[Rfam]
RNA sequence: UUGGAGGACUUAAAUAUUUCAACUUGAAGAGUGGCGAACGUGAAGACUUCAACUUGGAUAUUUGGAGGGUUUAAGUAUUUCAAUU
Numbered sequence: 001u002u003g004g005a006g007g008a009c010u011u012a013a014a015u016a017u018u019u020c021a022a023c024u025u026g027a028a029g030a031g032u033g034g035c036g037a038a039c040g041u042g043a044a045g046a047c048u049u050c051a052a053c054u055u056g057g058a059u060a061u062u063u064g065g066a067g068g069g070u071u072u073a074a075g076u077a078u079u080u081c082a083a084u085u
Stems, first nucleotide, its partner, number of pairs: 001083006009075006017067005025058001028055001032051003036047001